Small nucleolar RNA SNORD22: a 125-nucleotide sequence from Labeo rohita. On this family, see Tycowski et al., Science 1994: "Requirement for intron-encoded U22 small nucleolar RNA in 18S ribosomal RNA maturation".
[Rfam]
Nucleotides: 125
Base pairs, nucleotide, nucleotide: 001124002123003122004121
Number, partner (000 for none) and nucleotide at each position: 001124c002123u003122u004121u005000u006000a007000u008000g009000a010000u011000g012000u013000a014000a015000c016000u017000u018000g019000c020000a021000c022000a023000u024000g025000u026000c027000u028000u029000a030000c031000g032000c033000c034000c035000u036000g037000u038000c039000a040000a041000u042000a043000c044000c045000a046000g047000a048000a049000c050000c051000u052000g053000a054000a055000a056000a057000g058000g059000u060000g061000a062000a063000c064000c065000c066000a067000c068000u069000g070000g071000u072000g073000u074000u075000g076000c077000c078000u079000u080000g081000g082000c083000a084000a085000u086000a087000a088000g089000g090000g091000g092000a093000u094000g095000a096000c097000u098000u099000g100000u101000u102000g103000g104000g105000g106000u107000u108000a109000c110000c111000a112000a113000c114000a115000g116000u117000c118000u119000g120000a121004g122003a123002a124001g125000g

About this RNA
The family's consensus secondary structure was predicted with PFOLD. Taxonomically the source falls in Labeo (Eukaryota, Opisthokonta, Vertebrata, Cyprinidae). It scores 78 bits against the family's covariance model. It is annotated as a C/D-box small nucleolar RNA.